The record is a 126-nucleotide RNA from Brassica oleracea, which matches "MIR9563 microRNA precursor family" in Rfam. Its family is annotated with miRNA-mediated post-transcriptional gene silencing and RISC complex in the Gene Ontology. The match comes from Rfam's covariance-model search (93 bits). The organism belongs to Brassica oleracea, within Eukaryota.
[Rfam]
RNA sequence: UGAAUAUAAGAAACCGUUUAUUAAAUUUUAACUAAAAAAACUAAGAACCAGUUCUUAAAUAUUUUAUAUAAGAGUUGGUUCUUAGUUUUUUUUAGUUAAAAAUUAAGAGACAAUUUCUUAUACUCC
Numbered sequence: 001u002g003a004a005u006a007u008a009a010g011a012a013a014c015c016g017u018u019u020a021u022u023a024a025a026u027u028u029u030a031a032c033u034a035a036a037a038a039a040a041c042u043a044a045g046a047a048c049c050a051g052u053u054c055u056u057a058a059a060u061a062u063u064u065u066a067u068a069u070a071a072g073a074g075u076u077g078g079u080u081c082u083u084a085g086u087u088u089u090u091u092u093u094a095g096u097u098a099a100a101a102a103u104u105a106a107g108a109g110a111c112a113a114u115u116u117c118u119u120a121u122a123c124u125c126c
Base pairs, nucleotide, nucleotide: 002125003124005122006121007120008119009118010117011116012115013114016111017110018109019108021106022105023104024103026101027100028099029098030097031096032095033094034093035092036091037090038089039088041085042084043083044082045081046080047079